[Rfam]
RNA sequence: AGCCAUGCAGUGAACACAAAGCGAACUAUUCUUUCGCCUUUUACUAAAGAAUACCGUGUGUGCAUUGCAAUGAAUGGCAUACUCCAAUUUUUUGAUGGUGUUUCUCCUUAGGGAGAAG
Numbered sequence: 001a002g003c004c005a006u007g008c009a010g011u012g013a014a015c016a017c018a019a020a021g022c023g024a025a026c027u028a029u030u031c032u033u034u035c036g037c038c039u040u041u042u043a044c045u046a047a048a049g050a051a052u053a054c055c056g057u058g059u060g061u062g063c064a065u066u067g068c069a070a071u072g073a074a075u076g077g078c079a080u081a082c083u084c085c086a087a088u089u090u091u092u093u094g095a096u097g098g099u100g101u102u103u104c105u106c107c108u109u110a111g112g113g114a115g116a117a118g
Base pairs, nucleotide, nucleotide: 003077004076005075006074008067009066010065011064012063014061015060016059017058018057027053028052029051030050031049032048033047034046101118102117103116104115105114106113

Rfam assigns this 118-nucleotide RNA sequence from Ipomoea nil to the family "U5 spliceosomal RNA". Taxonomically the source falls in Ipomoea (Eukaryota, Embryophyta, Tracheophyta, Solanales). For this family Rfam cites "The uRNA database" (Zwieb, Nucleic Acids Res, 1997). From the family's description: U5 RNA is a component of both types of known spliceosome. The precise function of this molecule is unknown, though it is known that the 5' loop is required for splice site selection and p220 binding, and that both the 3' stem-loop and the Sm site are important for Sm protein binding and cap methylation. The base pairs follow the family's consensus structure, which is taken from published work. The family has 180 seed sequences and 28,527 matches in Rfam 15.1.